[Rfam]
RNA: Eukaryotic large subunit ribosomal RNA, nucleotides 1036 to 1523
RNA sequence: CCCUCCGAAGUUUCCCUCAGGAUAGCAGGAACUUGUCAGUUUUAUCAGGUAAAGCGAAUGAUUAGAGGCCUUGGGGUCAUACCGACCUUAACCUAUUCUCAAACUUUAAAUGGGUAAAGAGCGGACGUUGCUUAAGUGAACGGCCGACAUGAAUGACAUGGGUUCCUAGUGGGCCAUUUUUGGUAAGCAGAACUGGCGAUGCGGGAUGAACCGAACGCCGAGUUAAGGUGCCGGAAUGUACGCUCAUGAGACACCACAAAAGGUGUUAGUUCAUAUAGACAGCAGGGCGGUGGCCAUGAAAGUCGGCAUCCGCUAAGGAGUGUGUUAUGACUCACCUGCCGAAUGAACUAGCCCUGAAAAUGGAUGGCGCUUAAGCGUACUACCUAUACUCGGCCGCUAAAAGAAACUUGUUUUUAGCGAGUAGGAGGGCGUGGGGGUUGUGUAGAAGCAUUGGCGCGAGCCGGUGUGGAACAGCCUCUAGUGCAGAU
Numbered sequence: 001c002c003c004u005c006c007g008a009a010g011u012u013u014c015c016c017u018c019a020g021g022a023u024a025g026c027a028g029g030a031a032c033u034u035g036u037c038a039g040u041u042u043u044a045u046c047a048g049g050u051a052a053a054g055c056g057a058a059u060g061a062u063u064a065g066a067g068g069c070c071u072u073g074g075g076g077u078c079a080u081a082c083c084g085a086c087c088u089u090a091a092c093c094u095a096u097u098c099u100c101a102a103a104c105u106u107u108a109a110a111u112g113g114g115u116a117a118a119g120a121g122c123g124g125a126c127g128u129u130g131c132u133u134a135a136g137u138g139a140a141c142g143g144c145c146g147a148c149a150u151g152a153a154u155g156a157c158a159u160g161g162g163u164u165c166c167u168a169g170u171g172g173g174c175c176a177u178u179u180u181u182g183g184u185a186a187g188c189a190g191a192a193c194u195g196g197c198g199a200u201g202c203g204g205g206a207u208g209a210a211c212c213g214a215a216c217g218c219c220g221a222g223u224u225a226a227g228g229u230g231c232c233g234g235a236a237u238g239u240a241c242g243c244u245c246a247u248g249a250g251a252c253a254c255c256a257c258a259a260a261a262g263g264u265g266u267u268a269g270u271u272c273a274u275a276u277a278g279a280c281a282g283c284a285g286g287g288c289g290g291u292g293g294c295c296a297u298g299a300a301a302g303u304c305g306g307c308a309u310c311c312g313c314u315a316a317g318g319a320g321u322g323u324g325u326u327a328u329g330a331c332u333c334a335c336c337u338g339c340c341g342a343a344u345g346a347a348c349u350a351g352c353c354c355u356g357a358a359a360a361u362g363g364a365u366g367g368c369g370c371u372u373a374a375g376c377g378u379a380c381u382a383c384c385u386a387u388a389c390u391c392g393g394c395c396g397c398u399a400a401a402a403g404a405a406a407c408u409u410g411u412u413u414u415u416a417g418c419g420a421g422u423a424g425g426a427g428g429g430c431g432u433g434g435g436g437g438u439u440g441u442g443u444a445g446a447a448g449c450a451u452u453g454g455c456g457c458g459a460g461c462c463g464g465u466g467u468g469g470a471a472c473a474g475c476c477u478c479u480a481g482u483g484c485a486g487a488u
Stems, first nucleotide, its partner, number of pairs: 001429006011024001013022003027167007040119007052107001053105002059101003064096001066094003071091006078084001122146003126142004173197004178192005202213003217394005223388001227384003236381001238380001241377003261355003265352010282339005288312003293307003313317001318333001322331002395419009430483001432480010448467002453462003